[Rfam]
RNA: 6S-Flavo RNA
RNA sequence: ACUCAACAUUAGAUCUUUAUAAAGGAUGAGUCUAAAUUGUUAGAGCAAGCCGUCUUAGAACGGAUCCUCAACCAGUUUGUUAGUCCUAAACUUGUUUAUAAGGAGUUU
Numbered sequence: 001a002c003u004c005a006a007c008a009u010u011a012g013a014u015c016u017u018u019a020u021a022a023a024g025g026a027u028g029a030g031u032c033u034a035a036a037u038u039g040u041u042a043g044a045g046c047a048a049g050c051c052g053u054c055u056u057a058g059a060a061c062g063g064a065u066c067c068u069c070a071a072c073c074a075g076u077u078u079g080u081u082a083g084u085c086c087u088a089a090a091c092u093u094g095u096u097u098a099u100a101a102g103g104a105g106u107u108u
Base pairs, nucleotide, nucleotide: 023087024086025085026084027083034078035077036076037075038074043069044068045067050063051062052061053060